mir-76 microRNA precursor family: an 80-nucleotide sequence from Caenorhabditis remanei. Rfam 15.1 lists 6 matches to the family in 6 species. Lineage of the source: Eukaryota > Eumetazoa > Bilateria > Rhabditida > Caenorhabditis.
RNA sequence: UCCACCUUUUAGGACUUCACGACAAUCGAAUACCUUCCACACACUGGAUAUUCGUUGUUGAUGAAGUCUUAAUGGGUGUC
Numbered sequence: 001u002c003c004a005c006c007u008u009u010u011a012g013g014a015c016u017u018c019a020c021g022a023c024a025a026u027c028g029a030a031u032a033c034c035u036u037c038c039a040c041a042c043a044c045u046g047g048a049u050a051u052u053c054g055u056u057g058u059u060g061a062u063g064a065a066g067u068c069u070u071a072a073u074g075g076g077u078g079u080c
Base pairs, nucleotide, nucleotide: 003078004077005076006075007074009072010071011070012069013068014067015066016065017064018063019062020060021059022058023057024056025055027054028053029052030051031050032049033047034046